[Rfam]
RNA sequence: AAAGUUGCCUAUGCUACAGCUAUGGACUGGUUUAUAGCUGUAUGCUAUGCCUUU
Numbered sequence: 001a002a003a004g005u006u007g008c009c010u011a012u013g014c015u016a017c018a019g020c021u022a023u024g025g026a027c028u029g030g031u032u033u034a035u036a037g038c039u040g041u042a043u044g045c046u047a048u049g050c051c052u053u054u
Stems, first nucleotide, its partner, number of pairs: 001054003007050002010047002013045002015042006022035005

Source information
A member of the RNA family "Editing element of GABA-3 exon 9" from Hymenochirus boettgeri, 54 nucleotides long. The organism belongs to Hymenochirus, within Eukaryota. For this family Rfam cites "Editing modifies the GABA(A) receptor subunit alpha3" (Ohlson et al., RNA, 2007). It scores 75 bits against the family's covariance model.